[Rfam]
RNA: DUF3800-I RNA
RNA sequence: UAUGAUUACAGGUAUUUAUACACUGUUUAAACAUCUGAAUUGUGAUUAAAGCAAUUAAGCGUAUGUUAAGUACGUCACACUCAGAUGGAAAAGCGCCUAAACGGUGCUUUUUUUGUAAAUUU
Dot-bracket structure: ......((((((((....))).))))..)..((((((...(((((((.....)))...((((((.....))))))))))..))))))((((((((((.....))))))))))..........